The family of this 138-nucleotide RNA sequence from Clostridium ljungdahlii is "c-di-AMP riboswitch aptamer (ydaO/yuaA leader)". It scores 86 bits against the family's covariance model. Lineage of the source: Bacteria > Bacillati > Eubacteriales > Clostridiaceae > Clostridium. Its family is annotated with regulation of gene expression and cyclic-di-AMP binding in the Gene Ontology.
RNA sequence: AACAUAGACAAGCCUAAAUCUCAGGAAUGAGAUGUGGGGGAUAAUUAUUUUUUUGGGGUGAAUCUUUUUUACUAAAAAGUAGGGGUAUCCCAAUCCCGAACCCGUCAACUAACCUCGCAGGCAAAAUUAAGGGGGAUC
Numbered sequence: 001a002a003c004a005u006a007g008a009c010a011a012g013c014c015u016a017a018a019u020c021u022c023a024g025g026a027a028u029g030a031g032a033u034g035u036g037g038g039g040g041a042u043a044a045u046u047a048u049u050u051u052u053u054u055g056g057g058g059u060g061a062a063u064c065u066u067u068u069u070u071a072c073u074a075a076a077a078a079g080u081a082g083g084g085g086u087a088u089c090c091c092a093a094u095c096c097c098g099a100a101c102c103c104g105u106c107a108a109c110u111a112a113c114c115u116c117g118c119a120g121g122c123a124a125a126a127u128u129a130a131g132g133g134g135g136a137u138c
Stems, first nucleotide, its partner, number of pairs: 012122003018033006034118006046055002056103003064079004082097004